This 344-nucleotide sequence from Iocasia frigidifontis belongs to the Rfam family "Bacterial RNase P class A".

RNA sequence: UAAGUUGACCGGGUGAUCGCAACUAUUAUUAUAGUUGAGGAAAGUCCGAGCUCCAUAGGGUAGGAUGCUGGAUAACGUCCAGUGGAGGUGACUCCCAGGAAAGUGCCACAGAAAUAAACCGCCUGUUAAUUUUUUAGCAGGUAAGGGUGAAAAGGUGAGGUAAGGGCUCACCAGUGUUCAGGUGACUGAACUGCUAGGUAAACCCCAUCUGGAGAAAGUCCAAAUAGAGAGAACUAAGGUGGCCCGCCUGUUCUCCGGGUAAGGACGCUGGAGAUAUCAGGUAACUGAUAUCUUAGAUAGAUGAUCAUCCCAGACAGAACUCGGCUUACAGGUCAACUUAUUCU
Numbered sequence: 001u002a003a004g005u006u007g008a009c010c011g012g013g014u015g016a017u018c019g020c021a022a023c024u025a026u027u028a029u030u031a032u033a034g035u036u037g038a039g040g041a042a043a044g045u046c047c048g049a050g051c052u053c054c055a056u057a058g059g060g061u062a063g064g065a066u067g068c069u070g071g072a073u074a075a076c077g078u079c080c081a082g083u084g085g086a087g088g089u090g091a092c093u094c095c096c097a098g099g100a101a102a103g104u105g106c107c108a109c110a111g112a113a114a115u116a117a118a119c120c121g122c123c124u125g126u127u128a129a130u131u132u133u134u135u136a137g138c139a140g141g142u143a144a145g146g147g148u149g150a151a152a153a154g155g156u157g158a159g160g161u162a163a164g165g166g167c168u169c170a171c172c173a174g175u176g177u178u179c180a181g182g183u184g185a186c187u188g189a190a191c192u193g194c195u196a197g198g199u200a201a202a203c204c205c206c207a208u209c210u211g212g213a214g215a216a217a218g219u220c221c222a223a224a225u226a227g228a229g230a231g232a233a234c235u236a237a238g239g240u241g242g243c244c245c246g247c248c249u250g251u252u253c254u255c256c257g258g259g260u261a262a263g264g265a266c267g268c269u270g271g272a273g274a275u276a277u278c279a280g281g282u283a284a285c286u287g288a289u290a291u292c293u294u295a296g297a298u299a300g301a302u303g304a305u306c307a308u309c310c311c312a313g314a315c316a317g318a319a320c321u322c323g324g325c326u327u328a329c330a331g332g333u334c335a336a337c338u339u340a341u342u343c344u
Stems, first nucleotide, its partner, number of pairs: 001340010011329001012309007020037007042327003046324005051214004058245004063210005068082005083097001084095004098205002103203002105199003119146002121142009154172006174194001176191006218266004229255005237249004273292008